[Rfam]
A member of the RNA family "Y RNA" from Cavia porcellus, 112 nucleotides long. Rfam classes the family as a non-coding RNA gene. It scores 75 bits against the family's covariance model. Lineage of the source: Eukaryota > Deuterostomia > Teleostomi > Boreoeutheria > Cavia.
RNA sequence: GGCUGGUCUGAAGGUAGUGAGUUACCUCAAUUGAUUGUUCACAAUCAGUACAGAUUGAAUACCUUGUUCUUCUCUUUCCCCCCUUCUCACUACUGCACUUGACUAGUCUUAA
Numbered sequence: 001g002g003c004u005g006g007u008c009u010g011a012a013g014g015u016a017g018u019g020a021g022u023u024a025c026c027u028c029a030a031u032u033g034a035u036u037g038u039u040c041a042c043a044a045u046c047a048g049u050a051c052a053g054a055u056u057g058a059a060u061a062c063c064u065u066g067u068u069c070u071u072c073u074c075u076u077u078c079c080c081c082c083c084u085u086c087u088c089a090c091u092a093c094u095g096c097a098c099u100u101g102a103c104u105a106g107u108c109u110u111a112a
Stems, first nucleotide, its partner, number of pairs: 001108008010100002014096002016091006044073001047070002